[Rfam]
RNA sequence: UUCUUAUCCAGAGAGGUUGAGGGAAUGGCCCGAAGACACCUCAGCAACCUUCAGUUAGCCUAAACUGAAAAGGUGCUAAGUCCAUCAAGUGAUUAACUUGAGAGAUAAGGA
Number, nucleotide and partner (000 for none) at each position: 001u111002u110003c109004u108005u107006a106007u105008c104009c000010a000011g000012a000013g042014a041015g040016g039017u038018u000019g000020a000021g031022g030023g029024a000025a085026u084027g083028g082029c023030c022031c021032g000033a000034a000035g000036a000037c000038a017039c016040c015041u014042c013043a077044g076045c075046a074047a000048c073049c072050u069051u068052c067053a066054g065055u064056u000057a000058g000059c000060c000061u000062a000063a000064a055065c054066u053067g052068a051069a050070a000071a000072g049073g048074u046075g045076c044077u043078a000079a000080g000081u103082c028083c027084a026085u025086c100087a099088a098089g097090u096091g000092a000093u000094u000095a000096a090097c089098u088099u087100g086101a000102g000103a081104g008105a007106u006107a005108a004109g003110g002111a001
RNA: SAM riboswitch aptamer (S box leader)
Organism: Niallia nealsonii